[Rfam]
RNA sequence: UGGCGAUGUUUGGUGAACGAACACGGAUGUGAACAUGUUCUUGCGAUCGUCUUCGAGAGCCCAAAUUGUGUGGAGUUUUCCGUUGCCUUCGUUCUGAUUUUAGGC
Numbered sequence: 001u002g003g004c005g006a007u008g009u010u011u012g013g014u015g016a017a018c019g020a021a022c023a024c025g026g027a028u029g030u031g032a033a034c035a036u037g038u039u040c041u042u043g044c045g046a047u048c049g050u051c052u053u054c055g056a057g058a059g060c061c062c063a064a065a066u067u068g069u070g071u072g073g074a075g076u077u078u079u080c081c082g083u084u085g086c087c088u089u090c091g092u093u094c095u096g097a098u099u100u101u102a103g104g105c
Stems, first nucleotide, its partner, number of pairs: 004103001024082004
This 105-nucleotide RNA from Heliocybe sulcata belongs to the Rfam family "Small nucleolar RNA Z13/snr52". The organism belongs to Heliocybe, within Eukaryota. Its family is annotated with RNA processing and nucleolus in the Gene Ontology. It scores 48 bits against the family's covariance model. The family has 42 seed sequences and 1,203 matches in Rfam 15.1.